This 48-nucleotide sequence belongs to the Rfam family "DUF2693-FD RNA". By type it is a small RNA. DUF2693-FD RNA is a non-coding RNA (ncRNA) recognised in Bacteroides by a bioinformatic analisis by Zasha Weinberg. No recognised genes.

RNA sequence: CCCUACGUGACUGAUGACAGGCAACACGUAGCGAGAACGUGCGAGGGG
Numbered sequence: 001c002c003c004u005a006c007g008u009g010a011c012u013g014a015u016g017a018c019a020g021g022c023a024a025c026a027c028g029u030a031g032c033g034a035g036a037a038c039g040u041g042c043g044a045g046g047g048g
Base pairs, nucleotide, nucleotide: 001047002046003045004044006043007042011020012019016032022035025041026040027039028038029037